A member of the RNA family "Aggregatibacter sRNA 22" from Gammaproteobacteria bacterium LSUCC0112, 94 nucleotides long. The source organism's lineage runs through Bacteria, Pseudomonadati, Pseudomonadota and Gammaproteobacteria. A reference for the family is Oogai et al. (2017), "Small RNA repertoires and their intraspecies variation in Aggregatibacter actinomycetemcomitans", DNA Res.
RNA sequence: GGAUUGAGAUAAAACGCACAGCGUUUUAGACGGCUGUAAGCCGCCCCGAAGGGGUGAGCAAUCCGCCACAGCGGAUUGCGAAUCAAUCAAUCUC
Numbered sequence: 001g002g003a004u005u006g007a008g009a010u011a012a013a014a015c016g017c018a019c020a021g022c023g024u025u026u027u028a029g030a031c032g033g034c035u036g037u038a039a040g041c042c043g044c045c046c047c048g049a050a051g052g053g054g055u056g057a058g059c060a061a062u063c064c065g066c067c068a069c070a071g072c073g074g075a076u077u078g079c080g081a082a083u084c085a086a087u088c089a090a091u092c093u094c
Stems, first nucleotide, its partner, number of pairs: 010028008032041001043055005058079009085093001
Rfam classes the family as a small RNA. The match comes from Rfam's covariance-model search (52 bits). The family has 7 seed sequences and 101 matches in Rfam 15.1.